Source information
MIR1120/MIR1122 microRNA precursor family: an 83-nucleotide RNA sequence from Triticum aestivum. The literature on the family includes a 2007 paper in Genome Biol by Yao et al., "Cloning and characterization of microRNAs from wheat (Triticum aestivum L.)". The organism belongs to Triticum, within Eukaryota. Pairs were carried over by alignment from the consensus structure, which was predicted with RNAalifold.
RNA sequence: AUACUCCCUCCGUCUCAUAAUAUAAGAGCGUUUUUGACACUAGUGUAGUGUCAAAAACGCUCUUAUAUUAUGGGAGGGAGUAU
Numbered sequence: 001a002u003a004c005u006c007c008c009u010c011c012g013u014c015u016c017a018u019a020a021u022a023u024a025a026g027a028g029c030g031u032u033u034u035u036g037a038c039a040c041u042a043g044u045g046u047a048g049u050g051u052c053a054a055a056a057a058c059g060c061u062c063u064u065a066u067a068u069u070a071u072g073g074g075a076g077g078g079a080g081u082a083u
Base pairs, nucleotide, nucleotide: 003081004080005079007077008076009075010074011073016072017071019069020068021067022066023065024064025063026062027061028060029059030058031057032056033055034054035053036052037051038050039049040048041047